[Rfam]
RNA: Guanidine-II riboswitch aptamer (mini-ykkC)
RNA sequence: CGCGGGACGACCCGCGUCGAUGCUUCGCCUGGGGACGGCCCCA
Numbered sequence: 001c002g003c004g005g006g007a008c009g010a011c012c013c014g015c016g017u018c019g020a021u022g023c024u025u026c027g028c029c030u031g032g033g034g035a036c037g038g039c040c041c042c043a
Stems, first nucleotide, its partner, number of pairs: 001016006030043005